[Rfam]
RNA: cold-seep-1 RNA
RNA sequence: GGUCCCCACUAAGGCAGCGUUAAAACACUAUGCCAACGUGGGGGAAGGCUCAUCUCACGAUCUUGCUGUUCCUUCUACUUCCGGUGCCGGGCAUCGGUCUGCUCGAGUUAGGCACACUGCGCUGCCGCUCGGGGCCGAUGUUACGGGGACGA
Numbered sequence: 001g002g003u004c005c006c007c008a009c010u011a012a013g014g015c016a017g018c019g020u021u022a023a024a025a026c027a028c029u030a031u032g033c034c035a036a037c038g039u040g041g042g043g044g045a046a047g048g049c050u051c052a053u054c055u056c057a058c059g060a061u062c063u064u065g066c067u068g069u070u071c072c073u074u075c076u077a078c079u080u081c082c083g084g085u086g087c088c089g090g091g092c093a094u095c096g097g098u099c100u101g102c103u104c105g106a107g108u109u110a111g112g113c114a115c116a117c118u119g120c121g122c123u124g125c126c127g128c129u130c131g132g133g134g135c136c137g138a139u140g141u142u143a144c145g146g147g148g149a150c151g152a
Stems, first nucleotide, its partner, number of pairs: 002150006014033002017031001019028002047067003052061003094138007105130004112125003